[Rfam]
Rfam assigns this 75-nucleotide sequence from Lactuca sativa to the family "Plastid-ycf2 5UTR RNA". Pairs were carried over by alignment from the consensus structure, which was predicted with LocARNA. The match comes from Rfam's covariance-model search (83 bits). The family's RNA type in Rfam is cis-regulatory element.
RNA sequence: GUGUAUCCGGUAGGAAUUGUACCUACAAAUUCGCAAAUUAUGAGUUGGGUGCUUUAACCAUUCAACCAUGCAUGC
Numbered sequence: 001g002u003g004u005a006u007c008c009g010g011u012a013g014g015a016a017u018u019g020u021a022c023c024u025a026c027a028a029a030u031u032c033g034c035a036a037a038u039u040a041u042g043a044g045u046u047g048g049g050u051g052c053u054u055u056a057a058c059c060a061u062u063c064a065a066c067c068a069u070g071c072a073u074g075c
Stems, first nucleotide, its partner, number of pairs: 003075004008070001010026005040069003044066008